[Rfam]
RNA sequence: CUAUCAAGCAGUGACUGGCGAAAAUGUGGAAAUGACCACAAGGGAGCUGCAUUCAUAUACCCAUUUGCCGUUCGCCUGGGCAUAAUGA
Numbered sequence: 001c002u003a004u005c006a007a008g009c010a011g012u013g014a015c016u017g018g019c020g021a022a023a024a025u026g027u028g029g030a031a032a033u034g035a036c037c038a039c040a041a042g043g044g045a046g047c048u049g050c051a052u053u054c055a056u057a058u059a060c061c062c063a064u065u066u067g068c069c070g071u072u073c074g075c076c077u078g079g080g081c082a083u084a085a086u087g088a
Base pairs, nucleotide, nucleotide: 006052008050009049010048011047012046015043016042017076018075019074020073021072026039027038028037029036066082067081068080069079
RNA: ZMP/ZTP riboswitch aptamer (pfl RNA motif)
Organism: Rossellomorea marisflavi